[Rfam]
Nucleotides: 047
Stems, first nucleotide, its partner, number of pairs: 001020001003018006035046004
Number, partner (000 for none) and nucleotide at each position: 001020u002000u003018u004017c005016u006015g007014g008013g009000a010000c011000g012000a013008c014007c015006c016005g017004g018003a019000c020001a021000a022000a023000u024000a025000u026000c027000a028000u029000c030000u031000c032000a033000u034000c035046g036045g037044g038043g039000a040000c041000g042000a043038c044037c045036c046035c047000a

The family of this 47-nucleotide RNA from Xenorhabdus bovienii is "Guanidine-II riboswitch aptamer (mini-ykkC)". Rfam describes the family as follows. Simpler in structure and has fewer highly conserved nucleotide positions than the ykkC-yxkD leader. Despite this each of its two stem-loop structures directly bind free guanidine. Therefore, mini-ykkC RNA motif represents a distinct class of guanidine-sensing RNAs. Its crystal structure was also determined. The family's consensus secondary structure is taken from published work.